RNA sequence: GCGGCCGAGGGGCGCUGCAACGGCGUCGAACCGCCGUCACGCUCGGCCACACCCCCCUUCGUGAGUUAAGGGCGCCCACCACUC
Dot-bracket structure: ..((((((............(((((......)))))......))))))....................................
Numbered sequence: 001g002c003g004g005c006c007g008a009g010g011g012g013c014g015c016u017g018c019a020a021c022g023g024c025g026u027c028g029a030a031c032c033g034c035c036g037u038c039a040c041g042c043u044c045g046g047c048c049a050c051a052c053c054c055c056c057c058u059u060c061g062u063g064a065g066u067u068a069a070g071g072g073c074g075c076c077c078a079c080c081a082c083u084c
Stems, first nucleotide, its partner, number of pairs: 003048006021036005
This 84-nucleotide RNA sequence belongs to the Rfam family "SAH (S-adenosyl-L-homocysteine) riboswitch aptamer". Rfam 15.1 lists 1,354 matches to the family in 1,132 species.